[Rfam]
This 279-nucleotide RNA from Papio anubis belongs to the Rfam family "Mason-Pfizer monkey virus packaging signal". The family's consensus secondary structure was predicted with PFOLD. It scores 151 bits against the family's covariance model. Its family is annotated with viral genome packaging in the Gene Ontology. The source organism's lineage runs through Eukaryota, Bilateria, Teleostomi, Boreoeutheria and Papio. The family's RNA type in Rfam is cis-regulatory element.
RNA sequence: AGCAGCCUCAGCGUGGAGCCUGGAAAUGAGGGAUUCCGUGAGGAAGGGCGUGAAAAGAGCGGUCGACCGUCAAGCUGAAACUAAACUCCUCCGAUCACGGCGGGAACCUGCGGCGUCAGAAUCGAGAAAAGGUAAGUGGCUGGCGUCGAAAUGGGACAAGAAUUAAGUCAGCAUCGUCUAUGUGGGACAAUUAAAGAGGCUUUAAAGAUAAAGAGGAGUAAAGGUUAAAGGUAAUGAUUUGUUUUAAAUUUUUUGAUUUUGUAAAAGACACUUGCCCUU
Numbered sequence: 001a002g003c004a005g006c007c008u009c010a011g012c013g014u015g016g017a018g019c020c021u022g023g024a025a026a027u028g029a030g031g032g033a034u035u036c037c038g039u040g041a042g043g044a045a046g047g048g049c050g051u052g053a054a055a056a057g058a059g060c061g062g063u064c065g066a067c068c069g070u071c072a073a074g075c076u077g078a079a080a081c082u083a084a085a086c087u088c089c090u091c092c093g094a095u096c097a098c099g100g101c102g103g104g105a106a107c108c109u110g111c112g113g114c115g116u117c118a119g120a121a122u123c124g125a126g127a128a129a130a131g132g133u134a135a136g137u138g139g140c141u142g143g144c145g146u147c148g149a150a151a152u153g154g155g156a157c158a159a160g161a162a163u164u165a166a167g168u169c170a171g172c173a174u175c176g177u178c179u180a181u182g183u184g185g186g187a188c189a190a191u192u193a194a195a196g197a198g199g200c201u202u203u204a205a206a207g208a209u210a211a212a213g214a215g216g217a218g219u220a221a222a223g224g225u226u227a228a229a230g231g232u233a234a235u236g237a238u239u240u241g242u243u244u245u246a247a248a249u250u251u252u253u254u255g256a257u258u259u260u261g262u263a264a265a266a267g268a269c270a271c272u273u274g275c276c277c278u279u
Stems, first nucleotide, its partner, number of pairs: 006032002009030001013027002036048002087127002090125001095121001096119001100114002103111001136157002140154003164204003167200003213254007222240006264279002267276001269274001